[Rfam]
RNA: TPP riboswitch aptamer (THI element)
Organism: Treponema berlinense
RNA sequence: AAAAAUGAAUUUGGGAGCUGGCGCAAACCGGCUGAGAGGAAGCUUCUUCGCUUUGACCGUACCUGAUUUGGAUAAUGCCAACGUAGGAAAUCUUAGACUUCUAAUC
Numbered sequence: 001a002a003a004a005a006u007g008a009a010u011u012u013g014g015g016a017g018c019u020g021g022c023g024c025a026a027a028c029c030g031g032c033u034g035a036g037a038g039g040a041a042g043c044u045u046c047u048u049c050g051c052u053u054u055g056a057c058c059g060u061a062c063c064u065g066a067u068u069u070g071g072a073u074a075a076u077g078c079c080a081a082c083g084u085a086g087g088a089a090a091u092c093u094u095a096g097a098c099u100u101c102u103a104a105u106c
Stems, first nucleotide, its partner, number of pairs: 007093001009091002011056004017032005039049004062087004068081004